[Rfam]
RNA sequence: UUCCCUCUUGGCGCGGAGGUUUAACUGCGCUCGUUCCCCGUAUCGGUGUGGGCGCACCGGAUUUAUAAAUCAAAGUCCUUUAGGGAACGGAAAGGAAC
Numbered sequence: 001u002u003c004c005c006u007c008u009u010g011g012c013g014c015g016g017a018g019g020u021u022u023a024a025c026u027g028c029g030c031u032c033g034u035u036c037c038c039c040g041u042a043u044c045g046g047u048g049u050g051g052g053c054g055c056a057c058c059g060g061a062u063u064u065a066u067a068a069a070u071c072a073a074a075g076u077c078c079u080u081u082a083g084g085g086a087a088c089g090g091a092a093a094g095g096a097a098c
Stems, first nucleotide, its partner, number of pairs: 005018004010032001011030003033088005043060005
The record is a 98-nucleotide sequence, which matches "GP20-a RNA" in Rfam. Pairs were carried over by alignment from the consensus structure, which is taken from published work. Rfam classes the family as a cis-regulatory element.